[Rfam]
The family of this 67-nucleotide sequence from Planococcus lenghuensis is "Bacillaceae-1 RNA". The family's RNA type in Rfam is small RNA. The organism belongs to Planococcus, within Bacteria. The family's consensus secondary structure is taken from published work. Rfam 15.1 lists 5,721 matches to the family in 247 species.

Nucleotides: 067
Base pairs, nucleotide, nucleotide: 012048013047014046015045016044017043025039026038027037028036029035053067054066055065056064057063
Number, partner (000 for none) and nucleotide at each position: 001000u002000u003000u004000u005000g006000a007000g008000g009000a010000g011000c012048g013047c014046a015045a016044c017043c018000u019000a020000a021000g022000a023000g024000c025039g026038c027037g028036a029035c030000a031000u032000c033000c034000u035029g036028u037027c038026g039025c040000a041000a042000c043017g044016g045015u046014u047013g048012c049000a050000u051000g052000a053067c054066c055065c056064g057063c058000u059000u060000c061000c062000c063057g064056c065055g066054g067053g